[Rfam]
The family of this 116-nucleotide sequence from Rickettsiales endosymbiont of Peranema trichophorum is "Group II catalytic intron D1-D4-2".
Its family is annotated with Group II intron splicing in the Gene Ontology.
It scores 94 bits against the family's covariance model.
From the family's description: Group II introns are found in rRNA, tRNA and mRNA of organelles in fungi, plants and protists, and also in mRNA in bacteria.
RNA sequence: GAAGGAGGGCCCUUCGGGAUCGGUAUGCAGGUACAGGUCUCAAACCACCACAAGCAGCUGAGGUAAAGAGCCAUGCUUGUAAGCGUUGGGGAAAAGCCCAAGAGGAAUGGGCAGGU
Numbered sequence: 001g002a003a004g005g006a007g008g009g010c011c012c013u014u015c016g017g018g019a020u021c022g023g024u025a026u027g028c029a030g031g032u033a034c035a036g037g038u039c040u041c042a043a044a045c046c047a048c049c050a051c052a053a054g055c056a057g058c059u060g061a062g063g064u065a066a067a068g069a070g071c072c073a074u075g076c077u078u079g080u081a082a083g084c085g086u087u088g089g090g091g092a093a094a095a096g097c098c099c100a101a102g103a104g105g106a107a108u109g110g111g112c113a114g115g116u
Stems, first nucleotide, its partner, number of pairs: 001015005016041006023034004046115001048091002051088003054080002057077001059075001062072003096112005